[Rfam]
Source information
Rfam assigns this 104-nucleotide RNA from Texcoconibacillus texcoconensis to the family "TPP riboswitch aptamer (THI element)". The organism belongs to Texcoconibacillus, within Bacteria.

RNA sequence: AGAAAUCACAAGGGGAGCCUAUUGAAGGCUGAGAGGAAGUUCGUGACUUCGACCCUUCGAACCUGUGAGAUGAUGCUCGCGUAGGAAUGUGACUUGUGAAGGAA
Numbered sequence: 001a002g003a004a005a006u007c008a009c010a011a012g013g014g015g016a017g018c019c020u021a022u023u024g025a026a027g028g029c030u031g032a033g034a035g036g037a038a039g040u041u042c043g044u045g046a047c048u049u050c051g052a053c054c055c056u057u058c059g060a061a062c063c064u065g066u067g068a069g070a071u072g073a074u075g076c077u078c079g080c081g082u083a084g085g086a087a088u089g090u091g092a093c094u095u096g097u098g099a100a101g102g103a104a
Stems, first nucleotide, its partner, number of pairs: 006092005011056004017029004036050005062085004066079004